[Rfam]
RNA sequence: ACCCCGUCCAAGGGGGGCCCCGACGAGGGGGCUGAGAGGCCGCACCGUUCCGAUCCGGAACUCCGCAGCGACCCUUGAACCUGAUCCGGGUCAUGCCGGCGGAGGGAUGGGACGCACAUGCUGA
Numbered sequence: 001a002c003c004c005c006g007u008c009c010a011a012g013g014g015g016g017g018c019c020c021c022g023a024c025g026a027g028g029g030g031g032c033u034g035a036g037a038g039g040c041c042g043c044a045c046c047g048u049u050c051c052g053a054u055c056c057g058g059a060a061c062u063c064c065g066c067a068g069c070g071a072c073c074c075u076u077g078a079a080c081c082u083g084a085u086c087c088g089g090g091u092c093a094u095g096c097c098g099g100c101g102g103a104g105g106g107a108u109g110g111g112a113c114g115c116a117c118a119u120g121c122u123g124a
Base pairs, nucleotide, nucleotide: 007111008110009109010108011075012074013073014072016069017032018031019030020029021028040068042066043065080105081104082103086099087098088097089096
TPP riboswitch aptamer (THI element): a 124-nucleotide sequence from Phreatobacter cathodiphilus.
NCBI's taxonomy places the organism under Bacteria, Pseudomonadati, Pseudomonadota, Hyphomicrobiales, Phreatobacter.
Rfam links the family to the GO term thiamine pyrophosphate binding.